This 71-nucleotide RNA sequence from Chinchilla lanigera belongs to the Rfam family "mir-302 microRNA precursor family". The family has 49 seed sequences and 2,090 matches in Rfam 15.1. Its Rfam clan is "mir-290 clan".

[Rfam]
RNA sequence: CUUCAACUUUAACAUGGAGGCGCUUUCUGUGUCUUGCAAUGACAGUAAGUGCUUCCAUGUUUUAGUAGAAG
Numbered sequence: 001c002u003u004c005a006a007c008u009u010u011a012a013c014a015u016g017g018a019g020g021c022g023c024u025u026u027c028u029g030u031g032u033c034u035u036g037c038a039a040u041g042a043c044a045g046u047a048a049g050u051g052c053u054u055c056c057a058u059g060u061u062u063u064a065g066u067a068g069a070a071g
Base pairs, nucleotide, nucleotide: 001071002070003069006066007065008064011061012060013059014058015057016056017055018054019053020052021051022050023049024048025047027045028044029043030042
NCBI's taxonomy places the organism under Eukaryota, Chordata, Amniota, Chinchillidae, Chinchilla.